[Rfam]
RNA sequence: CAUUUACGCGAUAUUAAGCUUUCCAGCGUAUUACUCUGAUUGUCCAUCUUUGGACGCCGAGUGGCUCCUGUCCACUCUGCUUUGACGCCUCCCUGUUAUCAACUUCAAAGCCGCCGGCAACGGCGGCUCUUUUUUU
Numbered sequence: 001c002a003u004u005u006a007c008g009c010g011a012u013a014u015u016a017a018g019c020u021u022u023c024c025a026g027c028g029u030a031u032u033a034c035u036c037u038g039a040u041u042g043u044c045c046a047u048c049u050u051u052g053g054a055c056g057c058c059g060a061g062u063g064g065c066u067c068c069u070g071u072c073c074a075c076u077c078u079g080c081u082u083u084g085a086c087g088c089c090u091c092c093c094u095g096u097u098a099u100c101a102a103c104u105u106c107a108a109a110g111c112c113g114c115c116g117g118c119a120a121c122g123g124c125g126g127c128u129c130u131u132u133u134u135u136u
Stems, first nucleotide, its partner, number of pairs: 001008001010032002015030002018027003042055004059077006084097004107130001109128008